drum RNA: a 113-nucleotide RNA. It is one of the family's seed sequences. Firmicutes, Bacteroidetes (1 example), Proteobacteria (2 examples), Spirochaetes (2 examples). Rfam classes the family as a small RNA.
[Rfam]
RNA sequence: AAGCGUUGAAGUAAGGUGUUGUGCCAGAAAGCAGUGCCUUACGGAGCUUUAUAAGGGUUCUGUAUUUACCACACACUGGCUAGGAGGAAGCUUCCGAAAAGAAAAUGCUGCGA
Dot-bracket structure: ((((......((((((((((((.[[[[...))))))))))))...))))............(((...........]]]]...((((.....))))..........))).....